Bacterial RNase P class A: a 360-nucleotide RNA sequence from Pseudodesulfovibrio piezophilus. The base pairs follow the family's consensus structure, which is taken from published work.
RNA sequence: GGAGCCGGACAGACUGUCGCCGCGAUUUGUAUCGGGGAGGAAAGUCCGGGCUCCACAGGGCAGAACGCUGGGUAACUCCCAGGGGGAGCGAUCUCCGUCACGUGCAACAGAGAGUAGACCGCCUUCGGGUAUAUCCCGGAGGUAAGGGUGAAAGGGUGGGGUAAGAGCCCACCGGCUGUCGUAGUGAUACGGCAGGCCAGGUGAACUCCGUUCGGAGCAAGACCAAAUAGGGUAGCGCAGUAGAUCGGCCCGAUCGAGCUACCGGGUAGGUUGCUUGAGGCGUCUGGUAACAGCCGUCCUAGAUGAAUGACAGUUGCCCCGAAAGGGGAACAAGACCCGGCUUAUCGACCGACUCCAGAC
Numbered sequence: 001g002g003a004g005c006c007g008g009a010c011a012g013a014c015u016g017u018c019g020c021c022g023c024g025a026u027u028u029g030u031a032u033c034g035g036g037g038a039g040g041a042a043a044g045u046c047c048g049g050g051c052u053c054c055a056c057a058g059g060g061c062a063g064a065a066c067g068c069u070g071g072g073u074a075a076c077u078c079c080c081a082g083g084g085g086g087a088g089c090g091a092u093c094u095c096c097g098u099c100a101c102g103u104g105c106a107a108c109a110g111a112g113a114g115u116a117g118a119c120c121g122c123c124u125u126c127g128g129g130u131a132u133a134u135c136c137c138g139g140a141g142g143u144a145a146g147g148g149u150g151a152a153a154g155g156g157u158g159g160g161g162u163a164a165g166a167g168c169c170c171a172c173c174g175g176c177u178g179u180c181g182u183a184g185u186g187a188u189a190c191g192g193c194a195g196g197c198c199a200g201g202u203g204a205a206c207u208c209c210g211u212u213c214g215g216a217g218c219a220a221g222a223c224c225a226a227a228u229a230g231g232g233u234a235g236c237g238c239a240g241u242a243g244a245u246c247g248g249c250c251c252g253a254u255c256g257a258g259c260u261a262c263c264g265g266g267u268a269g270g271u272u273g274c275u276u277g278a279g280g281c282g283u284c285u286g287g288u289a290a291c292a293g294c295c296g297u298c299c300u301a302g303a304u305g306a307a308u309g310a311c312a313g314u315u316g317c318c319c320c321g322a323a324a325g326g327g328g329a330a331c332a333a334g335a336c337c338c339g340g341c342u343u344a345u346c347g348a349c350c351g352a353c354u355c356c357a358g359a360c
Stems, first nucleotide, its partner, number of pairs: 001356004006351003010347001011345001012315007020037002023034004042343003046340005051217004058251004063213005068082005083096005097208001102206002104202002119147002121143009155173006175197001176195008221272004231263006243255004279298004284293003